[Rfam]
RNA sequence: GUUGUCUGUGAUGAACCUAUACAUUUAUCUACCUUGUUUGAACAACAGUGAAAAGAAACAAAGCUGAGACAAAC
Numbered sequence: 001g002u003u004g005u006c007u008g009u010g011a012u013g014a015a016c017c018u019a020u021a022c023a024u025u026u027a028u029c030u031a032c033c034u035u036g037u038u039u040g041a042a043c044a045a046c047a048g049u050g051a052a053a054a055g056a057a058a059c060a061a062a063g064c065u066g067a068g069a070c071a072a073a074c
Stems, first nucleotide, its partner, number of pairs: 001074002003071004
Rfam assigns this 74-nucleotide sequence from Neogobius melanostomus to the family "Small nucleolar RNA SNORD34". Its family is annotated with nucleolus and RNA processing in the Gene Ontology. The family's RNA type in Rfam is C/D-box small nucleolar RNA. NCBI's taxonomy places the organism under Eukaryota, Metazoa, Chordata, Euteleostomi, Neogobius. The family is grouped with related families in Rfam's "SNORD34 clan". The base pairs follow the family's consensus structure, which was predicted with PFOLD. Rfam describes the family as follows. snoRNA U34 is found in intron 5 of the ribosomal protein L13a gene in humans.